[Rfam]
RNA: c-di-AMP riboswitch aptamer (ydaO/yuaA leader)
RNA sequence: ACUUUGUCGACGCUGAGUUUUCUUUGAGAAAAACGGGGGAACCAAGUACUUGGGGUGAAUCAGCAUGCACAACUUGUGCAUGUUGUAGGGCGAUUUCUCACCGUCCGAAUCCGGCAGCUAACCUCGUAGGCGAGAGUGGGAAGGAUA
Dot-bracket structure: ..........((((...(((.........)))((((((....((......))(((.....(((((((((((...)))))))))))..((((...........))))...))).........)))))).))))...............